About this RNA:
A member of the RNA family "NiCo (Nickel/Cobalt) riboswitch aptamer" from Mobilitalea sibirica, 123 nucleotides long. Lineage of the source: Bacteria > Bacillati > Clostridia > Lachnospiraceae > Mobilitalea. The base pairs follow the family's consensus structure, which is taken from published work. Its family is annotated with metal ion homeostasis and cobalt ion binding in the Gene Ontology. A reference for the family is Furukawa et al. (2015), "Bacterial riboswitches cooperatively bind Ni(2+) or Co(2+) ions and control expression of heavy metal transporters", Mol Cell.

RNA sequence: ACAGUACAAUCUGAUCAGGCGACGAUAUGAAAGCAUAAUGCUAUUUUAUAGAUUGAGUUGAUAGUAACAUCGUGCAGCCGGGCUGUAUUACAGCAGCAGGUUUCAUCAGCCUGCGGGACAGUA
Number, nucleotide and partner (000 for none) at each position: 001a000002c000003a000004g000005u000006a000007c000008a000009a000010u000011c121012u120013g119014a000015u000016c117017a000018g079019g078020c077021g000022a073023c072024g071025a070026u069027a000028u000029g000030a000031a000032a000033g000034c000035a000036u000037a000038a000039u000040g000041c000042u000043a000044u000045u000046u000047u000048a000049u000050a000051g000052a000053u000054u000055g000056a000057g000058u000059u000060g000061a000062u000063a000064g000065u000066a000067a000068c000069a026070u025071c024072g023073u022074g000075c000076a000077g020078c019079c018080g000081g000082g094083c093084u092085g091086u090087a000088u000089u000090a086091c085092a084093g083094c082095a000096g114097c113098a112099g111100g110101u109102u000103u000104c000105a000106u000107c000108a000109g101110c100111c099112u098113g097114c096115g000116g000117g016118a000119c013120a012121g011122u000123a000